This 114-nucleotide sequence from Desulfitobacterium metallireducens belongs to the Rfam family "FMN riboswitch aptamer (RFN element)". Its family is annotated with FMN binding in the Gene Ontology. The family's consensus secondary structure is taken from published work. The organism belongs to Desulfitobacterium metallireducens, within Bacteria. A reference for the family is Winkler et al. (2002), "An mRNA structure that controls gene expression by binding FMN", Proc Natl Acad Sci U S A.
[Rfam]
RNA sequence: AAUACCCUCUGGGGACAGGUGAAAUUCCUUACCGGCGGUAAAGCCCGCGAGCCGAAAGGCUGAUCUGGUGAAAGUCCAGAGCCGACAGUAUAGUCUGGAUGGAAAGAGGAGCUA
Numbered sequence: 001a002a003u004a005c006c007c008u009c010u011g012g013g014g015a016c017a018g019g020u021g022a023a024a025u026u027c028c029u030u031a032c033c034g035g036c037g038g039u040a041a042a043g044c045c046c047g048c049g050a051g052c053c054g055a056a057a058g059g060c061u062g063a064u065c066u067g068g069u070g071a072a073a074g075u076c077c078a079g080a081g082c083c084g085a086c087a088g089u090a091u092a093g094u095c096u097g098g099a100u101g102g103a104a105a106g107a108g109g110a111g112c113u114a
Stems, first nucleotide, its partner, number of pairs: 006109005017029003031094002033084002035048004043082002051060003064080005086097003